Small nucleolar RNA R160: a 79-nucleotide RNA from Vigna radiata. It scores 68 bits against the family's covariance model. snoR160 is a C/D box small nucleolar RNA, which acts as a methylation guide for 25S ribosomal RNA in plants. snoR160 has been alternatively named snoZ270 in rice. It is annotated as a C/D-box small nucleolar RNA. The base pairs follow the family's consensus structure.

[Rfam]
RNA sequence: AGCAAAGUGAUGAGGUUUUAAUCUCUGAAUACUAUGUUGAAUCAUCAUUCAUAAUGGUCUUCAAAGUUCUCUGAUUCCU
Numbered sequence: 001a002g003c004a005a006a007g008u009g010a011u012g013a014g015g016u017u018u019u020a021a022u023c024u025c026u027g028a029a030u031a032c033u034a035u036g037u038u039g040a041a042u043c044a045u046c047a048u049u050c051a052u053a054a055u056g057g058u059c060u061u062c063a064a065a066g067u068u069c070u071c072u073g074a075u076u077c078c079u
Stems, first nucleotide, its partner, number of pairs: 001079002004076002